Rfam assigns this 67-nucleotide RNA sequence from Furnarius figulus to the family "Small nucleolar RNA SNORD24". NCBI's taxonomy places the organism under Eukaryota, Opisthokonta, Teleostomi, Euteleostomi, Furnarius. The match comes from Rfam's covariance-model search (44 bits). Its family is annotated with RNA processing and nucleolus in the Gene Ontology. Pairs were carried over by alignment from the consensus structure, which was predicted with PFOLD.
[Rfam]
RNA sequence: UGCAAAUGAUGAUCACUUUUCUCUGUCCAAACACAUGUGAUGACAAACCACCAAGAUCGCUGAUGCA
Dot-bracket structure: ((((...........................................................))))